[Rfam]
RNA sequence: GGGAGCGGGCGCACGGCUGGUGCCGGCCCUGGUCUUCAAAACCAGUCGGGCGGCCUGGAGACAGGUCGCCGGUGGGUUCGAUUCCCAUACGCUCCC
Numbered sequence: 001g002g003g004a005g006c007g008g009g010c011g012c013a014c015g016g017c018u019g020g021u022g023c024c025g026g027c028c029c030u031g032g033u034c035u036u037c038a039a040a041a042c043c044a045g046u047c048g049g050g051c052g053g054c055c056u057g058g059a060g061a062c063a064g065g066u067c068g069c070c071g072g073u074g075g076g077u078u079c080g081a082u083u084c085c086c087a088u089a090c091g092c093u094c095c096c
Base pairs, nucleotide, nucleotide: 001096002095003094004093005092006091007090009088014025015024016023017022028048029045030044031043032042033041050069051068052067053066054065073087074086075085076084
The record is a 96-nucleotide RNA sequence from Tautonia plasticadhaerens, which matches "Selenocysteine transfer RNA" in Rfam.
The organism belongs to Tautonia, within Bacteria.
The family's consensus secondary structure is taken from published work.
A search with the family's covariance model found it, with a score of 66 bits.
The family is grouped with related families in Rfam's "tRNA clan".
For this family Rfam cites "Eukaryotic selenocysteine tRNA has the 9/4 secondary structure" (Mizutani and Goto, FEBS Lett, 2000).